[Rfam]
RNA sequence: UGCGCAGCGCGUGUUUGAGAACGAUAUCGGAAAACUUGACGCCCUUAAGGCGGGCGGUGCGGAUGUAUUGCGCCGUCAUCACCUCGGUCAUCGAGGCCCGCGUCAUCCGUGCGAUAUAACCCAUCCCAUAAAGGGAAAUGGUCAGCACCGGCAGGAAGAAGUUCCAGAAAUUGGCAUC
Numbered sequence: 001u002g003c004g005c006a007g008c009g010c011g012u013g014u015u016u017g018a019g020a021a022c023g024a025u026a027u028c029g030g031a032a033a034a035c036u037u038g039a040c041g042c043c044c045u046u047a048a049g050g051c052g053g054g055c056g057g058u059g060c061g062g063a064u065g066u067a068u069u070g071c072g073c074c075g076u077c078a079u080c081a082c083c084u085c086g087g088u089c090a091u092c093g094a095g096g097c098c099c100g101c102g103u104c105a106u107c108c109g110u111g112c113g114a115u116a117u118a119a120c121c122c123a124u125c126c127c128a129u130a131a132a133g134g135g136a137a138a139u140g141g142u143c144a145g146c147a148c149c150g151g152c153a154g155g156a157a158g159a160a161g162u163u164c165c166a167g168a169a170a171u172u173g174g175c176a177u178c
Base pairs, nucleotide, nucleotide: 005140006139010135012133014131015130016128017127019126021124029122030121040111041110042109046105048103050101051100052099053098054097055075056074057073058072059071060070061069062068082096083095084094085093086092147177149174151172154165155164156163157162
The family of this 178-nucleotide RNA from Sulfitobacter mediterraneus is "Ruegeria cis52 sRNA". By type it is a small RNA. It scores 132 bits against the family's covariance model. Lineage of the source: Bacteria > Pseudomonadati > Rhodobacterales > Roseobacteraceae > Sulfitobacter. The literature on the family includes a 2016 paper in Front Microbiol by Rivers et al., "Experimental Identification of Small Non-Coding RNAs in the Model Marine Bacterium Ruegeria pomeroyi DSS-3".